[Rfam]
RNA: Nuclear RNase P
Organism: Geotrypetes seraphini
RNA sequence: GUGGAAGGAAGCUUGGUGCUGAGGCAACCCACUGAGUGUCUUCAUCACUCUUCCAUUGAAGCCUUGGGGAAGGUCUGAGACAGGAGCCAUCAGUUGUCCUCACAGGACCUCACUUGAUUCAAGUGAAUGAGUUCCCAGUAAUCAUGGAUCCAGUUGAGGACCCUUUGCAGGAGACACAAGCUGAUGAGAUCACAAAUGCUGUGGAUGCAGCUCUCUCUGGAUUUGGAAAUGACUCAUGAUACAGCUCAAUCUCAUAACCCAAUUCAGACUACUCUCCUUCCAC
Numbered sequence: 001g002u003g004g005a006a007g008g009a010a011g012c013u014u015g016g017u018g019c020u021g022a023g024g025c026a027a028c029c030c031a032c033u034g035a036g037u038g039u040c041u042u043c044a045u046c047a048c049u050c051u052u053c054c055a056u057u058g059a060a061g062c063c064u065u066g067g068g069g070a071a072g073g074u075c076u077g078a079g080a081c082a083g084g085a086g087c088c089a090u091c092a093g094u095u096g097u098c099c100u101c102a103c104a105g106g107a108c109c110u111c112a113c114u115u116g117a118u119u120c121a122a123g124u125g126a127a128u129g130a131g132u133u134c135c136c137a138g139u140a141a142u143c144a145u146g147g148a149u150c151c152a153g154u155u156g157a158g159g160a161c162c163c164u165u166u167g168c169a170g171g172a173g174a175c176a177c178a179a180g181c182u183g184a185u186g187a188g189a190u191c192a193c194a195a196a197u198g199c200u201g202u203g204g205a206u207g208c209a210g211c212u213c214u215c216u217c218u219g220g221a222u223u224u225g226g227a228a229a230u231g232a233c234u235c236a237u238g239a240u241a242c243a244g245c246u247c248a249a250u251c252u253c254a255u256a257a258c259c260c261a262a263u264u265c266a267g268a269c270u271a272c273u274c275u276c277c278u279u280c281c282a283c
Base pairs, nucleotide, nucleotide: 001283002282003281004280007277008276009275020066021065022064023063024062034050035049036048037047038046075267076266077265078264079263085246086245087244096108097107098106099105110126111125112124113123114122115121127237128236129235130234131233132232133231148222149221150220151219152218153217